[Rfam]
RNA sequence: UGCAUGGUUGAUGAAAACCUGACCUUAGGUAGGUCUUUUUGGACCGUUUUGGUUCAAAGCUUUGGGCUUACCAAUGUUAGGACUUGUCAUAGUUACACUGACAUGCC
Numbered sequence: 001u002g003c004a005u006g007g008u009u010g011a012u013g014a015a016a017a018c019c020u021g022a023c024c025u026u027a028g029g030u031a032g033g034u035c036u037u038u039u040u041g042g043a044c045c046g047u048u049u050u051g052g053u054u055c056a057a058a059g060c061u062u063u064g065g066g067c068u069u070a071c072c073a074a075u076g077u078u079a080g081g082a083c084u085u086g087u088c089a090u091a092g093u094u095a096c097a098c099u100g101a102c103a104u105g106c107c
Base pairs, nucleotide, nucleotide: 002106003105004104005103006102

The family of this 107-nucleotide RNA sequence from Mastacembelus armatus is "Small nucleolar RNA SNORD46". The literature on the family includes a 1996 paper in J Mol Biol by Nicoloso et al., "Intron-encoded, antisense small nucleolar RNAs: the characterization of nine novel species points to their direct role as guides for the 2'-O-ribose methylation of rRNAs". U40 is a C/D box small nucleolar RNA, also known as snoZ153 in plants. The human sequence has also been annotated in the sequence databases as U46. U40 is encoded in intron 2 of the ribosomal protein S8 gene in human, and is hypothesised to guide methylation of 2'-O-ribose residues on 28S ribosomal RNA. This family represents vertebrate U40. Gene Ontology terms of the family: RNA processing and nucleolus. The family is grouped with related families in Rfam's "SNORD46 clan". Taxonomically the source falls in Mastacembelus (Eukaryota, Actinopteri, Teleostei, Mastacembeloidei). It is annotated as a C/D-box small nucleolar RNA.